[Rfam]
RNA sequence: GAAACAACCUGUACGGUGAGGCUCCUAUACAAACACAGGCCACUGCCCAAAAACGUCCAAAGACGCCAAUGGGUAGAACAGGGAUUGUCGGAUUAAGGCUUUCCAUAAUGUGGCUAAGAAACCAGUUUUCUUUACGUUGUAUAGUGCCGAAACUUGAGCGAGGGGAUACUGU
Numbered sequence: 001g002a003a004a005c006a007a008c009c010u011g012u013a014c015g016g017u018g019a020g021g022c023u024c025c026u027a028u029a030c031a032a033a034c035a036c037a038g039g040c041c042a043c044u045g046c047c048c049a050a051a052a053a054c055g056u057c058c059a060a061a062g063a064c065g066c067c068a069a070u071g072g073g074u075a076g077a078a079c080a081g082g083g084a085u086u087g088u089c090g091g092a093u094u095a096a097g098g099c100u101u102u103c104c105a106u107a108a109u110g111u112g113g114c115u116a117a118g119a120a121a122c123c124a125g126u127u128u129u130c131u132u133u134a135c136g137u138u139g140u141a142u143a144g145u146g147c148c149g150a151a152a153c154u155u156g157a158g159c160g161a162g163g164g165g166a167u168a169c170u171g172u
Stems, first nucleotide, its partner, number of pairs: 006167001008165003011159002015154003020148003025144008039114005045074005054065004082104003087099003116132005
RNA: M-box riboswitch aptamer (ykoK leader)
Organism: Listeria booriae